[Rfam]
Nucleotides: 160
Stems, first nucleotide, its partner, number of pairs: 013118003016048006023042005049089003053086001055083003059079003062075002091114001093112001094110001096108001098106002136158004142153004
Number, partner (000 for none) and nucleotide at each position: 001000u002000u003000a004000c005000u006000u007000a008000c009000c010000u011000g012000a013118a014117u015116g016048g017047g018046g019045u020044c021043a022000a023042u024041g025040g026039g027038u028000g029000a030000u031000c032000g033000u034000g035000a036000a037000g038027a039026u040025c041024c042023a043021u044020g045019g046018c047017c048016u049089a050088g051087g052000c053086u054000u055083g056082u057081g058000a059079c060078c061077u062075c063074c064000a065000u066000u067000g068000c069000a070000c071000u072000u073000u074063g075062g076000a077061g078060g079059g080000g081057u082056g083055c084000c085000u086053g087051c088050c089049u090000a091114a092000g093112g094110u095000u096108g097000g098106c099105c100000c101000a102000a103000g104000u105099g106098g107000u108096u109000u110094a111000g112093c113000g114091u115000a116015c117014g118013u119000c120000a121000u122000a123000a124000u125000u126000u127000g128000u129000u130000g131000c132000u133000g134000a135000g136158g137157g138156g139155g140000c141000c142153u143152g144151c145150g146000u147000u148000c149000g150145c151144g152143u153142g154000g155139c156138c157137c158136c159000a160000a
The record is a 160-nucleotide RNA sequence from Solanum lycopersicum, which matches "U1 spliceosomal RNA" in Rfam. A search with the family's covariance model found it, with a score of 115 bits. It is annotated as a spliceosomal small nuclear RNA. About the family: U1 is a small nuclear RNA (snRNA) component of the spliceosome (involved in pre-mRNA splicing). Its 5' end forms complementary base pairs with the 5' splice junction, thus defining the 5' donor site of an intron. There are significant differences in sequence and secondary structure between metazoan and yeast U1 snRNAs, the latter being much longer (568 nucleotides as compared to 164 nucleotides in human). Nevertheless, secondary structure predictions suggest that all U1 snRNAs share a 'common core' consisting of helices I, II, the proximal region of III, and IV. This family does not contain the larger yeast sequences. The source organism's lineage runs through Eukaryota, Viridiplantae, Streptophyta, asterids and Solanum subgen. Lycopersicon.